[Rfam]
RNA sequence: CCCAAUCAGAAGGCAGCGGGGCAUUUUUCCCAGCCUUCUACCUCCCUGUUGGACUUGGCCGAGCUUCGUGCUCGGCCUUUUUU
Numbered sequence: 001c002c003c004a005a006u007c008a009g010a011a012g013g014c015a016g017c018g019g020g021g022c023a024u025u026u027u028u029c030c031c032a033g034c035c036u037u038c039u040a041c042c043u044c045c046c047u048g049u050u051g052g053a054c055u056u057g058g059c060c061g062a063g064c065u066u067c068g069u070g071c072u073c074g075g076c077c078u079u080u081u082u083u
Stems, first nucleotide, its partner, number of pairs: 008039007057077008
Dot-bracket structure: .......(((((((..................))))))).................((((((((.....))))))))......
Shown here is an 83-nucleotide sequence from Oceaniovalibus sp. ACAM 378, a member of the family "Singlet oxygen resistance RNA X". Taxonomically the source falls in Oceaniovalibus (Bacteria, Pseudomonadati, Pseudomonadota, Roseobacteraceae). Its family is annotated with response to photooxidative stress in the Gene Ontology. Rfam's curators write: SorX (RSs2461)like SorY is a singlet oxygen induced sRNA that counteracts oxidative stress by targeting mRNA for a transporter in Rhodobacter. It also has an impact on resistance against organic hydroperoxides. It targets SD sequence of potA mRNA via an aSD sequence.